Rfam assigns this 121-nucleotide RNA from Yersinia kristensenii to the family "Yersinia sRNA 100".
RNA sequence: UUUUCAUCCCUGUCAGAGGCAAAAAUAGCUGUAUAAACGGCACGUUCAUCUAAGUGAACAUGGCUCUGACAGAAUACCUAGCUGUACCCCUACAAGUGCAUCAAAGAAAGCGUCAUGACAA
Number, nucleotide and partner (000 for none) at each position: 001u000002u000003u000004u000005c000006a000007u000008c000009c000010c072011u071012g070013u069014c068015a067016g066017a065018g064019g000020c000021a000022a000023a000024a000025a000026u000027a000028g041029c040030u039031g038032u037033a000034u000035a000036a000037a032038c031039g030040g029041c028042a000043c000044g059045u058046u057047c056048a055049u054050c000051u000052a000053a000054g049055u048056g047057a046058a045059c044060a000061u000062g000063g000064c018065u017066c016067u015068g014069a013070c012071a011072g010073a000074a000075u000076a000077c000078c000079u000080a000081g000082c000083u120084g119085u118086a000087c000088c000089c000090c000091u000092a113093c112094a000095a000096g000097u000098g000099c106100a000101u000102c000103a000104a000105a000106g099107a000108a000109a000110g000111c000112g093113u092114c000115a000116u000117g000118a085119c084120a083121a000
Gene Ontology term of the family: protein binding. The organism belongs to Yersinia kristensenii, within Bacteria. Rfam's curators write: 5' located ORF: qor, 3' located ORF: pspG. Decreased expression in the crp mutant (in the stationary phase), suggesting CRP regulon is a regulator of the sRNA. CRP binding in a cAMP dependent manner was confirmed.